Rfam assigns this 86-nucleotide RNA sequence from Cucumis sativus to the family "Small nucleolar RNA snoR109". NCBI's taxonomy places the organism under Eukaryota, Tracheophyta, fabids, Benincaseae, Cucumis. Pairs were carried over by alignment from the consensus structure, which was predicted with WAR.
[Rfam]
RNA sequence: CAGUUGUACCUAAAUCAAAUUUGAGAAGUUAACUGGUCGGUUGUUGUUAUCUGUCAACAAAUCUGUUUACCGAUCUUUUUACAUUU
Dot-bracket structure: ......................((((((.(....(((.((((((((........)))).)))).))).....).))))))......